[Rfam]
RNA sequence: ACAGCAUCAAAGCCGCGAGGCUCACCCCGUACAGGACGGCACCCCCCUGCCAUCCAUCUUCGUGAGCGGGCCAAGGUCUGAGCAUUCCAAUCCCUCUCGAUCGACUCUAGCUGGGUCCGGUCUGAACAGACUGAGCGUCGCACCAGAAAUACAGUCCGCACCAGGGUCACGCUUGACGAACCCGAGCUCGUCUCGGCAGAUGCGAGCAGAAGCUCCCUACGGGCCCCGGAGACGCGCUUCGGCGCUGAGGGGUGGAUGCGGACUUUGGGAUACGACGCAGGGAUCGGGCGCACACCUGCCCCUUCGUCAGCCUACGAUUCGUUCGCGGGUCAAGAGGAUCGGCGGGUGCUGCGUCCUUCAGUGCACUUCGCGGCUCGCACAGACGGGGCCUCGUGCCCCUGCGAAACUCGAUUCAGACUACUCUGGUGCUGU
Numbered sequence: 001a002c003a004g005c006a007u008c009a010a011a012g013c014c015g016c017g018a019g020g021c022u023c024a025c026c027c028c029g030u031a032c033a034g035g036a037c038g039g040c041a042c043c044c045c046c047c048u049g050c051c052a053u054c055c056a057u058c059u060u061c062g063u064g065a066g067c068g069g070g071c072c073a074a075g076g077u078c079u080g081a082g083c084a085u086u087c088c089a090a091u092c093c094c095u096c097u098c099g100a101u102c103g104a105c106u107c108u109a110g111c112u113g114g115g116u117c118c119g120g121u122c123u124g125a126a127c128a129g130a131c132u133g134a135g136c137g138u139c140g141c142a143c144c145a146g147a148a149a150u151a152c153a154g155u156c157c158g159c160a161c162c163a164g165g166g167u168c169a170c171g172c173u174u175g176a177c178g179a180a181c182c183c184g185a186g187c188u189c190g191u192c193u194c195g196g197c198a199g200a201u202g203c204g205a206g207c208a209g210a211a212g213c214u215c216c217c218u219a220c221g222g223g224c225c226c227c228g229g230a231g232a233c234g235c236g237c238u239u240c241g242g243c244g245c246u247g248a249g250g251g252g253u254g255g256a257u258g259c260g261g262a263c264u265u266u267g268g269g270a271u272a273c274g275a276c277g278c279a280g281g282g283a284u285c286g287g288g289c290g291c292a293c294a295c296c297u298g299c300c301c302c303u304u305c306g307u308c309a310g311c312c313u314a315c316g317a318u319u320c321g322u323u324c325g326c327g328g329g330u331c332a333a334g335a336g337g338a339u340c341g342g343c344g345g346g347u348g349c350u351g352c353g354u355c356c357u358u359c360a361g362u363g364c365a366c367u368u369c370g371c372g373g374c375u376c377g378c379a380c381a382g383a384c385g386g387g388g389c390c391u392c393g394u395g396c397c398c399c400u401g402c403g404a405a406a407c408u409c410g411a412u413u414c415a416g417a418c419u420a421c422u423c424u425g426g427u428g429c430u431g432u
Stems, first nucleotide, its partner, number of pairs: 001432004007426003012374007020067005034055003038051004078416005086283003103117005118133006135278006153264008375404005
Description:
The family of this 432-nucleotide RNA from Lentinus tigrinus is "Nuclear RNase P". A search with the family's covariance model found it, with a score of 66 bits. Its family is annotated with tRNA processing, ribonuclease P complex and ribonuclease P activity in the Gene Ontology. Its Rfam clan is "RNaseP clan". The family's RNA type in Rfam is ribozyme.